[Rfam]
RNA: Group II catalytic intron D1-D4-1
Organism: Brevibacillus panacihumi
Nucleotides: 083
Base pairs, nucleotide, nucleotide: 001022002021004020005019008016010014034043035042036041044083045082046081053076054075055074056073057072058071
Number, partner (000 for none) and nucleotide at each position: 001022g002021a003000a004020u005019c006000a007000c008016g009000g010014u011000u012000g013000a014010a015000a016008c017000a018000a019005g020004a021002u022001u023000u024000a025000u026000c027000a028000u029000g030000a031000g032000a033000a034043g035042u036041c037000a038000g039000c040000a041036g042035a043034c044083g045082c046081c047000a048000u049000a050000g051000u052000a053076c054075c055074g056073c057072a058071u059000g060000c061000a062000g063000u064000c065000g066000a067000c068000a069000a070000c071058a072057u073056g074055c075054g076053g077000g078000a079000a080000g081046g082045g083044c